MAT2A 3'UTR stem loop D: a 41-nucleotide RNA from Echinops telfairi.
For this family Rfam cites "New families of human regulatory RNA structures identified by comparative analysis of vertebrate genomes" (Parker et al., Genome Res, 2011).
RNA sequence: UCUGGGGUGUGGCCUAUGUACAGAGAAGCCCUCACCUCGUA
Numbered sequence: 001u002c003u004g005g006g007g008u009g010u011g012g013c014c015u016a017u018g019u020a021c022a023g024a025g026a027a028g029c030c031c032u033c034a035c036c037u038c039g040u041a
Stems, first nucleotide, its partner, number of pairs: 001041001003039006009032001011030003
Rfam's curators put it in the seed alignment. The family has 35 seed sequences and 422 matches in Rfam 15.1. It is annotated as a cis-regulatory element.